[Rfam]
RNA sequence: ACCCUCUGGUUCCCUUUCCCAUCAGAUCUAUUCGCUGGUCUUGGUGGUUGUAAAAGGAGAAAAAGGAACAAUGAAGCCAGCCUCCCAGUGCUUACAGUCUGGCAUAUAGCUUUUGGGCUGUUUCAAAUGAGA
Numbered sequence: 001a002c003c004c005u006c007u008g009g010u011u012c013c014c015u016u017u018c019c020c021a022u023c024a025g026a027u028c029u030a031u032u033c034g035c036u037g038g039u040c041u042u043g044g045u046g047g048u049u050g051u052a053a054a055a056g057g058a059g060a061a062a063a064a065g066g067a068a069c070a071a072u073g074a075a076g077c078c079a080g081c082c083u084c085c086c087a088g089u090g091c092u093u094a095c096a097g098u099c100u101g102g103c104a105u106a107u108a109g110c111u112u113u114u115g116g117g118c119u120g121u122u123u124c125a126a127a128u129g130a131g132a
Stems, first nucleotide, its partner, number of pairs: 004059004019047005025040004078120006095109001

Small nucleolar RNA SNORA61: a 132-nucleotide RNA sequence from Canis lupus. About the family: ACA61 is a member of the H/ACA class of snoRNA that guide the sites of modification of uridines to pseudouridines. It scores 107 bits against the family's covariance model. Lineage of the source: Eukaryota > Gnathostomata > Theria > Boreoeutheria > Canis lupus. Rfam 15.1 lists 881 matches to the family in 421 species. It is annotated as an H/ACA-box small nucleolar RNA.